[Rfam]
RNA: Small nucleolar RNA Z105
RNA sequence: UUGCCAUGAUGAGGAAGACAAAUGGCGUCUGAUCUAUUUGAUGAUAAAAUCCUCCUACUCAUUCUGA
Numbered sequence: 001u002u003g004c005c006a007u008g009a010u011g012a013g014g015a016a017g018a019c020a021a022a023u024g025g026c027g028u029c030u031g032a033u034c035u036a037u038u039u040g041a042u043g044a045u046a047a048a049a050u051c052c053u054c055c056u057a058c059u060c061a062u063u064c065u066g067a
Stems, first nucleotide, its partner, number of pairs: 006062004026043002029040001
Dot-bracket structure: .....((((................((.(..........).))...............)))).....